Selenocysteine insertion sequence 1: a 64-nucleotide sequence from Oncorhynchus kisutch. Rfam 15.1 lists 3,793 matches to the family in 721 species. The family's RNA type in Rfam is cis-regulatory element. From the family's description: The incorporation of selenocysteine into a protein sequence is directed by an in-frame UGA codon (usually a stop codon) within the coding region of the mRNA. Selenoprotein mRNAs contain a conserved secondary structure in the 3' UTR that is required for the distinction of UGA stop from UGA selenocysteine. The selenocysteine insertion sequence (SECIS) is around 60 nt in length and adopts a hairpin structure which is sufficiently well-defined and conserved to act as a computational screen for selenoprotein genes. The family's consensus secondary structure is taken from published work. On this family, see Walczak et al., RNA 1996: "A novel RNA structural motif in the selenocysteine insertion element of eukaryotic selenoprotein mRNAs".
RNA sequence: GUGGCUAAAUGAAGGUCUGCACUAAAAACAGCAUGCUCUGGGUCCAGGCCUGAUGUCCAGUCAC
Numbered sequence: 001g002u003g004g005c006u007a008a009a010u011g012a013a014g015g016u017c018u019g020c021a022c023u024a025a026a027a028a029c030a031g032c033a034u035g036c037u038c039u040g041g042g043u044c045c046a047g048g049c050c051u052g053a054u055g056u057c058c059a060g061u062c063a064c
Stems, first nucleotide, its partner, number of pairs: 001064005014050006021043003030037002